[Rfam]
RNA sequence: AGAAGGGCUUCCACGGUUCGCCGUCGGGGGCCUUUUUCUUUUGC
Numbered sequence: 001a002g003a004a005g006g007g008c009u010u011c012c013a014c015g016g017u018u019c020g021c022c023g024u025c026g027g028g029g030g031c032c033u034u035u036u037u038c039u040u041u042u043g044c
Stems, first nucleotide, its partner, number of pairs: 005033008015024001
Shown here is a 44-nucleotide RNA from Mesorhizobium waimense, a member of the family "ctRNA". Rfam 15.1 lists 245 matches to the family in 136 species. Rfam describes the family as follows. This family represents a group of ctRNAs (or counter-transcribed RNAs) from p42d and related plasmids. ctRNAs are small, highly structured, antisense sequences which are involved in negative regulation. For this family Rfam cites "Two discrete elements are required for the replication of a repABC plasmid: an antisense RNA and a stem-loop structure" (Venkova-Canova et al., Mol Microbiol, 2004). Taxonomically the source falls in Mesorhizobium (Bacteria, Pseudomonadota, Alphaproteobacteria, Phyllobacteriaceae).